L4-Archaeoglobi ribosomal protein leades: an 87-nucleotide sequence.
A reference for the family is Eckert and Weinberg (2020), "Discovery of 20 novel ribosomal leader candidates in bacteria and archaea", BMC Microbiol.
[Rfam]
RNA sequence: CUGACCGGUACGCAUGGGUCGACGUUCGUGCAACGAGCCCGUUCCCGCUGUUUCAAUAAUUUGGGCAGAAGGAUGCGUUAUUGUCAG
Number, nucleotide and partner (000 for none) at each position: 001c087002u086003g085004a084005c083006c000007g000008g000009u000010a078011c077012g076013c075014a000015u041016g040017g039018g038019u000020c000021g000022a000023c035024g034025u033026u032027c000028g000029u000030g000031c000032a026033a025034c024035g023036a000037g000038c018039c017040c016041g015042u000043u073044c072045c071046c000047g000048c068049u067050g066051u065052u064053u063054c000055a000056a000057u000058a000059a000060u000061u000062u000063g053064g052065g051066c050067a049068g048069a000070a000071g045072g044073a043074u000075g013076c012077g011078u010079u000080a000081u000082u000083g005084u004085c003086a002087g001